[Rfam]
RNA sequence: GUUUGUUCUCAGGGCGGGGUGUAAUUCCCCACCGGCGGUAUCUGGCGUGAUCCAGGAGCCCGCGAGCGCUUCCAUAGAUUGUGAUGGAAGGUCAGCAGAUCCGGUGAAAUGCCGGAGCCGACGGUUAAAGUCCGGAUGGAAGAGGACAAUG
Numbered sequence: 001g002u003u004u005g006u007u008c009u010c011a012g013g014g015c016g017g018g019g020u021g022u023a024a025u026u027c028c029c030c031a032c033c034g035g036c037g038g039u040a041u042c043u044g045g046c047g048u049g050a051u052c053c054a055g056g057a058g059c060c061c062g063c064g065a066g067c068g069c070u071u072c073c074a075u076a077g078a079u080u081g082u083g084a085u086g087g088a089a090g091g092u093c094a095g096c097a098g099a100u101c102c103g104g105u106g107a108a109a110u111g112c113c114g115g116a117g118c119c120g121a122c123g124g125u126u127a128a129a130g131u132c133c134g135g136a137u138g139g140a141a142g143a144g145g146a147c148a149a150u151g
Base pairs, nucleotide, nucleotide: 003149004148005147006146007145008144009143010142017029018028019027031131032130033120034119035063036062037061038060058118059117066096067095100116101115102114103113104112122134123133124132

The family of this 151-nucleotide RNA sequence from Paramesorhizobium endophyticum is "FMN riboswitch aptamer (RFN element)".